RNA sequence: CCAUAUUUCGAGUUUUGUGCGUGAAUCUAAUAAAACUGUAAUCCACACACAAAAAAUGUGGAUUUGUUUCAUGUUAGAUUCACGCACAAACUCGUAAUCUGUCU
Numbered sequence: 001c002c003a004u005a006u007u008u009c010g011a012g013u014u015u016u017g018u019g020c021g022u023g024a025a026u027c028u029a030a031u032a033a034a035a036c037u038g039u040a041a042u043c044c045a046c047a048c049a050c051a052a053a054a055a056a057u058g059u060g061g062a063u064u065u066g067u068u069u070c071a072u073g074u075u076a077g078a079u080u081c082a083c084g085c086a087c088a089a090a091c092u093c094g095u096a097a098u099c100u101g102u103c104u
Stems, first nucleotide, its partner, number of pairs: 002101002005098003011092003015089013029075003
RNA: MIR403 microRNA precursor family
Organism: Gossypium raimondii